[Rfam]
RNA sequence: UGAGCUUCGCAGAAAUUAUUUUUAUUCCUAUGAUUGUUGCUAUUGUUUUUUUGUAGGAUUGAAAAGUGCAAAGCUAGAAAAUAGGCUCCCCUCGCUAUCUAGUACAAAUACUUCUCACUCUGUAUUGGACGUUGGGGAGCUACAUUG
Numbered sequence: 001u002g003a004g005c006u007u008c009g010c011a012g013a014a015a016u017u018a019u020u021u022u023u024a025u026u027c028c029u030a031u032g033a034u035u036g037u038u039g040c041u042a043u044u045g046u047u048u049u050u051u052u053g054u055a056g057g058a059u060u061g062a063a064a065a066g067u068g069c070a071a072a073g074c075u076a077g078a079a080a081a082u083a084g085g086c087u088c089c090c091c092u093c094g095c096u097a098u099c100u101a102g103u104a105c106a107a108a109u110a111c112u113u114c115u116c117a118c119u120c121u122g123u124a125u126u127g128g129a130c131g132u133u134g135g136g137g138a139g140c141u142a143c144a145u146u147g
Base pairs, nucleotide, nucleotide: 001078003075004074005073009069010068011067016063017062026058027057028056029055030054031053032052033051036050085140086139087138088137089136090135091134093131094130098129099128100127101126102125108119

Description
Shown here is a 147-nucleotide RNA from Dendrobium nobile, a member of the family "Small nucleolar RNA snoR136". Rfam links the family to the GO terms nucleolus and RNA processing. The family's consensus secondary structure was predicted with mfold. By type it is an H/ACA-box small nucleolar RNA.